[Rfam]
RNA: aspS RNA
RNA sequence: GCACGUCGGUGCCGUCUACGCCGGCCUGCCGUCAUCUGCAAGUCCGUCCGUCACGGCACGGGGCGGAAGAGACGAGAGGA
Numbered sequence: 001g002c003a004c005g006u007c008g009g010u011g012c013c014g015u016c017u018a019c020g021c022c023g024g025c026c027u028g029c030c031g032u033c034a035u036c037u038g039c040a041a042g043u044c045c046g047u048c049c050g051u052c053a054c055g056g057c058a059c060g061g062g063g064c065g066g067a068a069g070a071g072a073c074g075a076g077a078g079g080a
Base pairs, nucleotide, nucleotide: 001029002028003027005025006024007023008022009021010020011019031073032072033071036069037068043067044066045065046064047063048062049061